[Rfam]
RNA: L17-Actino-Proteobacteria ribosomal protein leader
Organism: Streptomyces roseochromogenus
RNA sequence: CCGACAGACAACCGUCUGCUCGGAUACUGACCCCGGUACCUGACACGGCCGGGGCAG
Number, nucleotide and partner (000 for none) at each position: 001c023002c022003g021004a020005c018006a017007g016008a015009c000010a000011a000012c000013c000014g000015u008016c007017u006018g005019c000020u004021c003022g002023g001024a000025u000026a000027c057028u056029g055030a000031c054032c053033c052034c051035g050036g049037u048038a000039c000040c000041u000042g000043a000044c000045a000046c000047g000048g037049c036050c035051g034052g033053g032054g031055c029056a028057g027